[Rfam]
Shown here is a 124-nucleotide RNA from Jeotgalibacillus soli, a member of the family "epsC RNA". Rfam classes the family as a cis-regulatory element. Pairs were carried over by alignment from the consensus structure, which is taken from published work.
RNA sequence: UGGUACUGUCUCCAAUACCAUUAUCAAUGGAGGCACUCGAUCGCGCCGUGGGUAUACAGUUAAUUAUGUAAUGCCUUAGACUUGAAAUGUCAGUGGUGUGGUGUGAGGAUGGGUUAAAUGCCUA
Numbered sequence: 001u002g003g004u005a006c007u008g009u010c011u012c013c014a015a016u017a018c019c020a021u022u023a024u025c026a027a028u029g030g031a032g033g034c035a036c037u038c039g040a041u042c043g044c045g046c047c048g049u050g051g052g053u054a055u056a057c058a059g060u061u062a063a064u065u066a067u068g069u070a071a072u073g074c075c076u077u078a079g080a081c082u083u084g085a086a087a088u089g090u091c092a093g094u095g096g097u098g099u100g101g102u103g104u105g106a107g108g109a110u111g112g113g114u115u116a117a118a119u120g121c122c123u124a
Base pairs, nucleotide, nucleotide: 001020002019003018004017007035008034009033010032011031012030013029036107037106038105039104040102041101042100043099044098045097046096047095050076051075052074053073054072055070056069057068079091080090081089110124111123112122113121114120